S10-Clostridia ribosomal protein leader: a 97-nucleotide RNA. The literature on the family includes a 2020 paper in BMC Microbiol by Eckert and Weinberg, "Discovery of 20 novel ribosomal leader candidates in bacteria and archaea". It is one of the family's seed sequences.
RNA sequence: AAAUAGCAAAGAAGUGUGAGGUUGCUGUAUACCCGAAUACAUAAGGGUUUACAGGUUUUCACGCGGAGCGAAUGUCAAGUUAGGAAACUGGCGACAA
Numbered sequence: 001a002a003a004u005a006g007c008a009a010a011g012a013a014g015u016g017u018g019a020g021g022u023u024g025c026u027g028u029a030u031a032c033c034c035g036a037a038u039a040c041a042u043a044a045g046g047g048u049u050u051a052c053a054g055g056u057u058u059u060c061a062c063g064c065g066g067a068g069c070g071a072a073u074g075u076c077a078a079g080u081u082a083g084g085a086a087a088c089u090g091g092c093g094a095c096a097a
Stems, first nucleotide, its partner, number of pairs: 014064003018060004025054005073096004079092004